[Rfam]
RNA sequence: UGGAAGUGAUGAAAUAGAGAUAAUUGGAUGUCUCUUUGAAUGGAAUGUGUGUGAUAAAUGGAAUUUAAACUAAGGGGGGCGGAGGGGUGGGGAAUAUGCGUGUGUGUGUGCGCGUGUGUAGAAGAGGCUUCAAACGGGGGCACUGAUAAUGCAGUGCUGAUUCCGGAGUGCAUCUGAGGCAUGUUGUUAUAUUCUGGGGUGCCACGUGACAACACUGCUGAUGAUUAAAGCCCAAAACAAGCCCACCAAGACAAGCCUAGGCAUCCUAAAUCUCUAACAGGUUCAUUGAUGAAAGUGAUCCUGUGAUCUGAUCCAA
Numbered sequence: 001u002g003g004a005a006g007u008g009a010u011g012a013a014a015u016a017g018a019g020a021u022a023a024u025u026g027g028a029u030g031u032c033u034c035u036u037u038g039a040a041u042g043g044a045a046u047g048u049g050u051g052u053g054a055u056a057a058a059u060g061g062a063a064u065u066u067a068a069a070c071u072a073a074g075g076g077g078g079g080c081g082g083a084g085g086g087g088u089g090g091g092g093a094a095u096a097u098g099c100g101u102g103u104g105u106g107u108g109u110g111c112g113c114g115u116g117u118g119u120a121g122a123a124g125a126g127g128c129u130u131c132a133a134a135c136g137g138g139g140g141c142a143c144u145g146a147u148a149a150u151g152c153a154g155u156g157c158u159g160a161u162u163c164c165g166g167a168g169u170g171c172a173u174c175u176g177a178g179g180c181a182u183g184u185u186g187u188u189a190u191a192u193u194c195u196g197g198g199g200u201g202c203c204a205c206g207u208g209a210c211a212a213c214a215c216u217g218c219u220g221a222u223g224a225u226u227a228a229a230g231c232c233c234a235a236a237a238c239a240a241g242c243c244c245a246c247c248a249a250g251a252c253a254a255g256c257c258u259a260g261g262c263a264u265c266c267u268a269a270a271u272c273u274c275u276a277a278c279a280g281g282u283u284c285a286u287u288g289a290u291g292a293a294a295g296u297g298a299u300c301c302u303g304u305g306a307u308c309u310g311a312u313c314c315a316a
Stems, first nucleotide, its partner, number of pairs: 001315004182214008193201001194199001
RNA: Small Cajal body-specific RNA 7